[Rfam]
RNA sequence: GAACUGAAAAGGCAAACCUGCUCGAAAGACAGGGACGCAAAGCCACGGACCUUAGGCAUCGGUCGAAAGACCGAAUGCUAUGGCAGCCGGGUUGCCCGC
Numbered sequence: 001g002a003a004c005u006g007a008a009a010a011g012g013c014a015a016a017c018c019u020g021c022u023c024g025a026a027a028g029a030c031a032g033g034g035a036c037g038c039a040a041a042g043c044c045a046c047g048g049a050c051c052u053u054a055g056g057c058a059u060c061g062g063u064c065g066a067a068a069g070a071c072c073g074a075a076u077g078c079u080a081u082g083g084c085a086g087c088c089g090g091g092u093u094g095c096c097c098g099c
Stems, first nucleotide, its partner, number of pairs: 012038002017033004022029002041093004046089003050083002056078004
This 99-nucleotide RNA from Cohnella cholangitidis belongs to the Rfam family "c-di-GMP-I riboswitch aptamer". Rfam describes the family as follows. GEMM was predicted in a large-scale screen for bacterial structured RNA regulatory elements. The source organism's lineage runs through Bacteria, Bacillati, Bacilli, Paenibacillaceae and Cohnella. Gene Ontology term of the family: cyclic-di-GMP binding.